[Rfam]
RNA: Betaproteobacteria toxic small RNA
Organism: Collimonas fungivorans
RNA sequence: UGUCUCCUCCGUCCCUCCUCGGGUUCGGAUUUAGCCCGCUGCCGCAAGGCCAGCGGGCUUUUUCUU
Numbered sequence: 001u002g003u004c005u006c007c008u009c010c011g012u013c014c015c016u017c018c019u020c021g022g023g024u025u026c027g028g029a030u031u032u033a034g035c036c037c038g039c040u041g042c043c044g045c046a047a048g049g050c051c052a053g054c055g056g057g058c059u060u061u062u063u064c065u066u
Base pairs, nucleotide, nucleotide: 008029009028010027011026014023015022033059034058035057036056037055038054039053040052